[Rfam]
RNA sequence: GGGUAUCACUGUUUUGUUAUUCCCGGCUAAUAACACAAUAACAUGUGCAAAAGUUAUUUCACGUGUCAUUGUGUUAUUGAUUGGGGAUAGCGAAAAGUUAUAUUCCC
Numbered sequence: 001g002g003g004u005a006u007c008a009c010u011g012u013u014u015u016g017u018u019a020u021u022c023c024c025g026g027c028u029a030a031u032a033a034c035a036c037a038a039u040a041a042c043a044u045g046u047g048c049a050a051a052a053g054u055u056a057u058u059u060c061a062c063g064u065g066u067c068a069u070u071g072u073g074u075u076a077u078u079g080a081u082u083g084g085g086g087a088u089a090g091c092g093a094a095a096a097g098u099u100a101u102a103u104u105c106c107c
Base pairs, nucleotide, nucleotide: 002106003105005103012095013094014093015092016091017090018089019088020087022085023084024083025082026081028079029078030077031076032075033074034073035072036071037070038069039068041066042065043064044063045062046061047060049058050057